A member of the RNA family "Streptomyces RNA 2736" from Streptomyces triculaminicus, 60 nucleotides long.
Rfam's curators write: Identified by deep sequencing of transcriptome at the end of exponential growth phase. Appears smaller on northern blot than sequencing transcript. This indicates processing step. Streptomyces specific.
The organism belongs to Streptomyces, within Bacteria.
On this family, see Vockenhuber et al., RNA Biol 2011: "Deep sequencing-based identification of small non-coding RNAs in Streptomyces coelicolor".
It scores 51 bits against the family's covariance model.
[Rfam]
RNA sequence: CUCCCGGCCGGGUCCCGUGGGGGGAAUCCGCGCCGGGACAGAAAAGCGCCUCGCUCCGAC
Numbered sequence: 001c002u003c004c005c006g007g008c009c010g011g012g013u014c015c016c017g018u019g020g021g022g023g024g025a026a027u028c029c030g031c032g033c034c035g036g037g038a039c040a041g042a043a044a045a046g047c048g049c050c051u052c053g054c055u056c057c058g059a060c
Stems, first nucleotide, its partner, number of pairs: 003037005009030005014024003040051002